[Rfam]
The family of this 224-nucleotide RNA sequence from Nicotiana tabacum is "Plant small nucleolar RNA U3".
Its Rfam clan is "U3 clan".
RNA sequence: ACGACCUUACUUGAACAGGAUCUGUUCUAUAGGCUCGUACCACUGUAUCCUUGAGUUCUAAGGAGACAGAAAACCAAGUAUGGUUGAUGAGGUGUGGCUUUGAGACUAGAGCGUGAUUAAUUGCUGCCUUCCAUGGUCACUCGUGGGCUUGGAGCAGCAGUAGAGGAUCGUUCUUAGCUCUGUUUCCGCAGGCCUGGGAUGGUCUCAAAGCUCUCUGACAGACU
Numbered sequence: 001a002c003g004a005c006c007u008u009a010c011u012u013g014a015a016c017a018g019g020a021u022c023u024g025u026u027c028u029a030u031a032g033g034c035u036c037g038u039a040c041c042a043c044u045g046u047a048u049c050c051u052u053g054a055g056u057u058c059u060a061a062g063g064a065g066a067c068a069g070a071a072a073a074c075c076a077a078g079u080a081u082g083g084u085u086g087a088u089g090a091g092g093u094g095u096g097g098c099u100u101u102g103a104g105a106c107u108a109g110a111g112c113g114u115g116a117u118u119a120a121u122u123g124c125u126g127c128c129u130u131c132c133a134u135g136g137u138c139a140c141u142c143g144u145g146g147g148c149u150u151g152g153a154g155c156a157g158c159a160g161u162a163g164a165g166g167a168u169c170g171u172u173c174u175u176a177g178c179u180c181u182g183u184u185u186c187c188g189c190a191g192g193c194c195u196g197g198g199a200u201g202g203u204c205u206c207a208a209a210g211c212u213c214u215c216u217g218a219c220a221g222a223c224u
Base pairs, nucleotide, nucleotide: 001038002037003035005033006032007031013027014026015025016024017023018022043069044068045067046066048064049063050062051061052060053059078223079222081220082219097211098210099209100208101207102206103205104204105203106202107201108200110172111171112170113169123161124160125159126158127157129154130153131152132151133150135148137146138145139144174197175196176195177194179192180191181190182189183188

Small nucleolar RNAs (snoRNAs) are involved in the processing and modification of rRNA in the nucleolus. There are two main classes of snoRNAs: the box C/D class, and the box H/ACA class. U3 snoRNA is a member of the box C/D class. Rfam classes the family as a C/D-box small nucleolar RNA. Taxonomically the source falls in Nicotiana (Eukaryota, Mesangiospermae, lamiids, Solanaceae).